[Rfam]
RNA: Small nucleolar RNA snR60/Z15/Z230/Z193/J17
RNA sequence: CAGAUACAGUGAUGAUGCCAUAGUUCAGCAGAGCCCCCGUGACGAGCACUUCUGUCUUUCGCUCCUAUCUGAUGUAUCUG
Numbered sequence: 001c002a003g004a005u006a007c008a009g010u011g012a013u014g015a016u017g018c019c020a021u022a023g024u025u026c027a028g029c030a031g032a033g034c035c036c037c038c039g040u041g042a043c044g045a046g047c048a049c050u051u052c053u054g055u056c057u058u059u060c061g062c063u064c065c066u067a068u069c070u071g072a073u074g075u076a077u078c079u080g
Stems, first nucleotide, its partner, number of pairs: 004077005
Dot-bracket structure: ...(((((................................................................)))))...